[Rfam]
RNA: Small nucleolar RNA Z278
Organism: Hordeum vulgare
RNA sequence: GCCAAUGAUGUCAUGCCCAAUAUUUGGAGGUGCAGAUGGCUCCAGGAUCCUGUUUACAGGAUGAACCUACCUGGAGGCGCUGUAACCACAUGACAUCAAUGGGCAAGUCUGAGGU
Numbered sequence: 001g002c003c004a005a006u007g008a009u010g011u012c013a014u015g016c017c018c019a020a021u022a023u024u025u026g027g028a029g030g031u032g033c034a035g036a037u038g039g040c041u042c043c044a045g046g047a048u049c050c051u052g053u054u055u056a057c058a059g060g061a062u063g064a065a066c067c068u069a070c071c072u073g074g075a076g077g078c079g080c081u082g083u084a085a086c087c088a089c090a091u092g093a094c095a096u097c098a099a100u101g102g103g104c105a106a107g108u109c110u111g112a113g114g115u
Stems, first nucleotide, its partner, number of pairs: 001115003048061005